[Rfam]
RNA sequence: GCCGCUUUAGCACAGUGGUAGUGCGUGUCACUCGUACCCGCGAGGUGAUGACAAGGUCGGUUGUUCGAUCCAGCCAAGCGGCA
Numbered sequence: 001g002c003c004g005c006u007u008u009a010g011c012a013c014a015g016u017g018g019u020a021g022u023g024c025g026u027g028u029c030a031c032u033c034g035u036a037c038c039c040g041c042g043a044g045g046u047g048a049u050g051a052c053a054a055g056g057u058c059g060g061u062u063g064u065u066c067g068a069u070c071c072a073g074c075c076a077a078g079c080g081g082c083a
Base pairs, nucleotide, nucleotide: 001082002081003080004079005078006077007076010024011023012022013021026053027052028051029050030049059075060074061073062072063071

tRNA: an 83-nucleotide sequence from Punctularia strigosozonata. The family's RNA type in Rfam is transfer RNA. It scores 54 bits against the family's covariance model. Transfer RNA (tRNA) molecules are approximately 80 nucleotides in length. Their secondary structure includes four short double-helical elements and three loops (D, anti-codon, and T loops). Further hydrogen bonds mediate the characteristic L-shaped molecular structure. tRNAs have two regions of fundamental functional importance: the anti-codon, which is responsible for specific mRNA codon recognition, and the 3' end, to which the tRNAs corresponding amino acid is attached (by aminoacyl-tRNA synthetases). tRNAs cope with the degeneracy of the genetic code in two manners: having more than one tRNA (with a specific anti-codon) for a particular amino acid; and 'wobble' base-pairing, i.e. permitting non-standard base-pairing at the 3rd anti-codon position.